[Rfam]
RNA sequence: UAUCCCCAUUCUGGGGUCAUGGUAGAAGCGUUCACGUCGCGACCCCUGUCAGAGAUCUAACCAAUCCCUGCGAAUUCUACC
Numbered sequence: 001u002a003u004c005c006c007c008a009u010u011c012u013g014g015g016g017u018c019a020u021g022g023u024a025g026a027a028g029c030g031u032u033c034a035c036g037u038c039g040c041g042a043c044c045c046c047u048g049u050c051a052g053a054g055a056u057c058u059a060a061c062c063a064a065u066c067c068c069u070g071c072g073a074a075u076u077c078u079a080c081c
Base pairs, nucleotide, nucleotide: 013046014045015044016043017042018041021081022080023079024078025077026076027075028040029039030038050070051069052068054066055065056064

Source information: Rfam assigns this 81-nucleotide sequence from Synaphobranchus kaupii to the family "Mammalian CPEB3 ribozyme". Taxonomically the source falls in Synaphobranchus (Eukaryota, Opisthokonta, Eumetazoa, Anguilliformes). It scores 59 bits against the family's covariance model.